[Rfam]
RNA sequence: UUUGAGGUGAUGAUCCUUUUCCCAUAUUAUCGACUAUGAUUAUACUGUGCGAUUUUCGAGUUCUUCUCUUUGUUGAAGACUCUUAAGCCAGAUGUUCUGAUCAAG
Number, nucleotide and partner (000 for none) at each position: 001u105002u104003u103004g102005a101006g000007g000008u000009g000010a000011u000012g000013a000014u000015c000016c000017u000018u000019u000020u000021c000022c000023c000024a000025u000026a000027u000028u000029a000030u000031c000032g000033a000034c000035u000036a000037u000038g000039a000040u000041u000042a000043u000044a000045c000046u000047g000048u000049g000050c000051g000052a000053u000054u000055u000056u000057c000058g000059a000060g000061u000062u000063c000064u000065u000066c000067u000068c000069u000070u000071u000072g000073u000074u000075g000076a000077a000078g000079a000080c000081u000082c000083u000084u000085a000086a000087g000088c000089c000090a000091g000092a000093u000094g000095u000096u000097c000098u000099g000100a000101u005102c004103a003104a002105g001